The family of this 132-nucleotide sequence from Callithrix jacchus is "U11 spliceosomal RNA". Clan: U1 clan. The family's RNA type in Rfam is spliceosomal small nuclear RNA. Lineage of the source: Eukaryota > Opisthokonta > Teleostomi > Haplorrhini > Callithrix. Pairs were carried over by alignment from the consensus structure, which is taken from published work.
[Rfam]
RNA sequence: UCCAAGAGCUUCUGUCAUGAGUGGCACAUGUAAGGCAAUUCCAUUGCUCUUCAAACAGAAUCAACAUGCAAAGAUUUUGGAAGCAUUUUUUUUUUAUUUGGGAAGCUGAUGAUUGUUUGUCCCAGGGUUCUU
Dot-bracket structure: .......((((((((((....)))))..((.(.(((((.....))))).).))..(((((((..........)))))))))))).................(((.(((..(((.....))).)))..)))..